[Rfam]
RNA sequence: UGCGAUACAGUCAUCACAAAUUAUACAAGCAGUAUUAUGAUAGUACAUCUUUAAUUUUAAUAGUGUGUCAAUAGUGGUAGUCAUUUUGUUUUGAUUUAUUAAUCAAAUGGUAGGCAUGAUUGGACUCGAACCAACGACCCCCACCA
Numbered sequence: 001u002g003c004g005a006u007a008c009a010g011u012c013a014u015c016a017c018a019a020a021u022u023a024u025a026c027a028a029g030c031a032g033u034a035u036u037a038u039g040a041u042a043g044u045a046c047a048u049c050u051u052u053a054a055u056u057u058u059a060a061u062a063g064u065g066u067g068u069c070a071a072u073a074g075u076g077g078u079a080g081u082c083a084u085u086u087u088g089u090u091u092u093g094a095u096u097u098a099u100u101a102a103u104c105a106a107a108u109g110g111u112a113g114g115c116a117u118g119a120u121u122g123g124a125c126u127c128g129a130a131c132c133a134a135c136g137a138c139c140c141c142c143a144c145c146a
Base pairs, nucleotide, nucleotide: 025048030043032041033040067082069080108143109142110141113138117136118135120134121133122132123131
Rfam assigns this 146-nucleotide sequence from a Neisseriaceae bacterium to the family "Bacterial antisense RNA HPnc0260". A reference for the family is Sharma et al. (2010), "The primary transcriptome of the major human pathogen Helicobacter pylori", Nature.